The family of this 343-nucleotide sequence from bacterium HR15 is "Bacterial RNase P class A". It scores 276 bits against the family's covariance model. It is annotated as a ribozyme. Its family is annotated with dimeric ribonuclease P complex, tRNA processing and ribonuclease P activity in the Gene Ontology.
RNA sequence: GCUGCUGGCUGGGCGGCGGCUCCCUGCCGCGUGCAGGGGGAGGAAAGUCCGGGCUUCGCAGGAGACUGUGCUGGGUAACCCCCAGGCGCCUGAAUGGGCGACGGAAAGUGCCACAGAAACGCAGACCGCCCCUUUGGGGUAAGGGUGAAAUGGUGCGGUAAGAGCGCACCAGCGUGCGCGUGAGCGCUCGGCUGGGCAAACCCCACAGGAAGCAAGGUCAAAUAGGGAGGGGAUGACGCGCUCCGCCGACCCUCCGGGUUGACCGCUGAAGGCUUCGCGUAAGCGAGUGCCUUAGAGAGAUCGCCGCCACGAACAGAACCCGGCUUACACGCCAGCAGCCCUC
Numbered sequence: 001g002c003u004g005c006u007g008g009c010u011g012g013g014c015g016g017c018g019g020c021u022c023c024c025u026g027c028c029g030c031g032u033g034c035a036g037g038g039g040g041a042g043g044a045a046a047g048u049c050c051g052g053g054c055u056u057c058g059c060a061g062g063a064g065a066c067u068g069u070g071c072u073g074g075g076u077a078a079c080c081c082c083c084a085g086g087c088g089c090c091u092g093a094a095u096g097g098g099c100g101a102c103g104g105a106a107a108g109u110g111c112c113a114c115a116g117a118a119a120c121g122c123a124g125a126c127c128g129c130c131c132c133u134u135u136g137g138g139g140u141a142a143g144g145g146u147g148a149a150a151u152g153g154u155g156c157g158g159u160a161a162g163a164g165c166g167c168a169c170c171a172g173c174g175u176g177c178g179c180g181u182g183a184g185c186g187c188u189c190g191g192c193u194g195g196g197c198a199a200a201c202c203c204c205a206c207a208g209g210a211a212g213c214a215a216g217g218u219c220a221a222a223u224a225g226g227g228a229g230g231g232g233a234u235g236a237c238g239c240g241c242u243c244c245g246c247c248g249a250c251c252c253u254c255c256g257g258g259u260u261g262a263c264c265g266c267u268g269a270a271g272g273c274u275u276c277g278c279g280u281a282a283g284c285g286a287g288u289g290c291c292u293u294a295g296a297g298a299g300a301u302c303g304c305c306g307c308c309a310c311g312a313a314c315a316g317a318a319c320c321c322g323g324c325u326u327a328c329a330c331g332c333c334a335g336c337a338g339c340c341c342u343c
Stems, first nucleotide, its partner, number of pairs: 001339009011328001012308007020040008045326003049323005054212004061243002066208005071085005086102001087100004103203002108201002110197003126144002128140005152170006172192001173190002176187004216264004226255006234248002237245002271291003274287005